The family of this 194-nucleotide RNA sequence from Pseudomonas sp. 1239 is "RgsA sRNA". By type it is a small RNA. The match comes from Rfam's covariance-model search (182 bits). On this family, see Livny et al., Nucleic Acids Res 2006: "Identification of 17 Pseudomonas aeruginosa sRNAs and prediction of sRNA-encoding genes in 10 diverse pathogens using the bioinformatic tool sRNAPredict2". From the family's description: This small RNA (sRNA) was computationally identified in the genome of the opportunistic pathogen Pseudomonas aeruginosa and its expression verified by northern blot analysis.
RNA sequence: CAGCAGGGCCGCACGUAUUCCAAAUCUGUUUAAAAAACGAUCAACCCUUGGUGGAAUCGCGGCGAACCUGACCAAUACUUGAGGUGUUGGCGCGACGCAUCCCCCCAAGUGACGCGCCGAUAAGGGUGAACACGGACCGCUCGCCUUUGUUUUACUCCUAAUGGUCUUAACCCGGAUUCCCCCCCAGAACCCGG
Numbered sequence: 001c002a003g004c005a006g007g008g009c010c011g012c013a014c015g016u017a018u019u020c021c022a023a024a025u026c027u028g029u030u031u032a033a034a035a036a037a038c039g040a041u042c043a044a045c046c047c048u049u050g051g052u053g054g055a056a057u058c059g060c061g062g063c064g065a066a067c068c069u070g071a072c073c074a075a076u077a078c079u080u081g082a083g084g085u086g087u088u089g090g091c092g093c094g095a096c097g098c099a100u101c102c103c104c105c106c107a108a109g110u111g112a113c114g115c116g117c118c119g120a121u122a123a124g125g126g127u128g129a130a131c132a133c134g135g136a137c138c139g140c141u142c143g144c145c146u147u148u149g150u151u152u153u154a155c156u157c158c159u160a161a162u163g164g165u166c167u168u169a170a171c172c173c174g175g176a177u178u179c180c181c182c183c184c185c186a187g188a189a190c191c192c193g194g
Stems, first nucleotide, its partner, number of pairs: 039166005086121004091116002094113001096111003122148008172194004177189003